[Rfam]
RNA sequence: UCUUGUCCAUACAACUGGCGGAUAAGUGGGUAACCACAUGGGAGUAUGGAUAAUAAUAUUAAGUCGACCGCCUGGGCAAUCAAG
Numbered sequence: 001u002c003u004u005g006u007c008c009a010u011a012c013a014a015c016u017g018g019c020g021g022a023u024a025a026g027u028g029g030g031u032a033a034c035c036a037c038a039u040g041g042g043a044g045u046a047u048g049g050a051u052a053a054u055a056a057u058a059u060u061a062a063g064u065c066g067a068c069c070g071c072c073u074g075g076g077c078a079a080u081c082a083a084g
Stems, first nucleotide, its partner, number of pairs: 003053010015041002017072005026037004063077003
The record is an 84-nucleotide sequence from Butyrivibrio sp. Su6, which matches "ZMP/ZTP riboswitch aptamer (pfl RNA motif)" in Rfam. Lineage of the source: Bacteria > Bacillati > Bacillota > Clostridia > Butyrivibrio. It scores 67 bits against the family's covariance model. Gene Ontology terms of the family: regulation of purine nucleotide biosynthetic process and one-carbon metabolic process.